[Rfam]
Nucleotides: 077
Stems, first nucleotide, its partner, number of pairs: 015044003021077007028040001049066006
Number, partner (000 for none) and nucleotide at each position: 001000g002000g003000u004000g005000g006000c007000a008000a009000g010000u011000u012000u013000g014000a015044g016043g017042c018000c019000c020000u021077a022076g023075c024074g025073g026072a027071a028040g029000c030000a031000c032000u033000c034000a035000u036000g037000g038000c039000a040028c041000a042017g043016c044015c045000a046000u047000g048000u049066c050065a051064g052063a053062u054061u055000g056000c057000a058000a059000u060000a061054a062053a063052u064051c065050u066049g067000c068000a069000a070000a071027u072026u073025c074024u075023g076022c077021u